A member of the RNA family "Burkholderia RNA 14" from Bordetella sp. H567, 173 nucleotides long.
A reference for the family is Ramos et al. (2013), "Experimental identification of small non-coding regulatory RNAs in the opportunistic human pathogen Burkholderia cenocepacia J2315", Genomics.
The source organism's lineage runs through Bacteria, Pseudomonadati, Pseudomonadota, Alcaligenaceae and Bordetella.
Co-purified with Hfq, expression confirmed by Northern blot. Putative functional homologue of PA-SraF. Overlaps coding sequence.
RNA sequence: GUCGGCGUGGUGACCGUGCAGGCACAGUCCGUAUCGCUGACCACCGAAUUGCCGGGCCGUACCUCGCCGUUCCGCGUGGCCGAGGUCCGGCCGCAGGUCAACGGCAUCGUCCUGAAGCGCCUGUUCACCGAAGGCGGCACGGUCAAGGCCGGCCAGCAGCUGUACCAGAUCGA
Numbered sequence: 001g002u003c004g005g006c007g008u009g010g011u012g013a014c015c016g017u018g019c020a021g022g023c024a025c026a027g028u029c030c031g032u033a034u035c036g037c038u039g040a041c042c043a044c045c046g047a048a049u050u051g052c053c054g055g056g057c058c059g060u061a062c063c064u065c066g067c068c069g070u071u072c073c074g075c076g077u078g079g080c081c082g083a084g085g086u087c088c089g090g091c092c093g094c095a096g097g098u099c100a101a102c103g104g105c106a107u108c109g110u111c112c113u114g115a116a117g118c119g120c121c122u123g124u125u126c127a128c129c130g131a132a133g134g135c136g137g138c139a140c141g142g143u144c145a146a147g148g149c150c151g152g153c154c155a156g157c158a159g160c161u162g163u164a165c166c167a168g169a170u171c172g173a
Stems, first nucleotide, its partner, number of pairs: 003054005008047001010045001011043002015039002018037002021034001023031001055150004061143003067137004072133001075130001078092005093121001096118001102114003106110001157172001160168002